The family of this 179-nucleotide RNA from Streptomyces viridochromogenes is "c-di-AMP riboswitch aptamer (ydaO/yuaA leader)". The source organism's lineage runs through Bacteria, Bacillati, Actinomycetes, Kitasatosporales and Streptomyces viridochromogenes. Rfam links the family to the GO terms regulation of gene expression and cyclic-di-AMP binding. The match comes from Rfam's covariance-model search (50 bits).
RNA sequence: ACCCCACACACACCGACUCACUCACGCAGGGCAGGAGCGGGGGACCCAGGUAAGUCGCCGGUCCGCACAGCGGACCGGCUCGGGGUGAAGCCGCGUACGGCAGCACGACGCCGUACGCGGCCGGGCACCUCCCGGCCCGAACCCGACAGCUCACCUCGCAGGCGCCGGAGAGGAACAUC
Numbered sequence: 001a002c003c004c005c006a007c008a009c010a011c012a013c014c015g016a017c018u019c020a021c022u023c024a025c026g027c028a029g030g031g032c033a034g035g036a037g038c039g040g041g042g043g044a045c046c047c048a049g050g051u052a053a054g055u056c057g058c059c060g061g062u063c064c065g066c067a068c069a070g071c072g073g074a075c076c077g078g079c080u081c082g083g084g085g086u087g088a089a090g091c092c093g094c095g096u097a098c099g100g101c102a103g104c105a106c107g108a109c110g111c112c113g114u115a116c117g118c119g120g121c122c123g124g125g126c127a128c129c130u131c132c133c134g135g136c137c138c139g140a141a142c143c144c145g146a147c148a149g150c151u152c153a154c155c156u157c158g159c160a161g162g163c164g165c166c167g168g169a170g171a172g173g174a175a176c177a178u179c
Stems, first nucleotide, its partner, number of pairs: 011164001013162002018036002037159006047082001083144003091120011123138004